RNA: azaaromatic riboswitch aptamer (yjdF RNA)
Organism: Lawsonibacter faecis
RNA sequence: UUGCGCGGAGAUAAAAACAUGGUCCGGUCGGUAAUCCGGACGGGCGCCGCCGGCCUGUCCCACCGGUUCAGCGCCUCAGUAACCUGCCCUCCCAUGGGUUGUCCCUUCUCCGCAGGCAAAUC
Numbered sequence: 001u002u003g004c005g006c007g008g009a010g011a012u013a014a015a016a017a018c019a020u021g022g023u024c025c026g027g028u029c030g031g032u033a034a035u036c037c038g039g040a041c042g043g044g045c046g047c048c049g050c051c052g053g054c055c056u057g058u059c060c061c062a063c064c065g066g067u068u069c070a071g072c073g074c075c076u077c078a079g080u081a082a083c084c085u086g087c088c089c090u091c092c093c094a095u096g097g098g099u100u101g102u103c104c105c106u107u108c109u110c111c112g113c114a115g116g117c118a119a120a121u122c
Stems, first nucleotide, its partner, number of pairs: 005113007022041006042076006086099004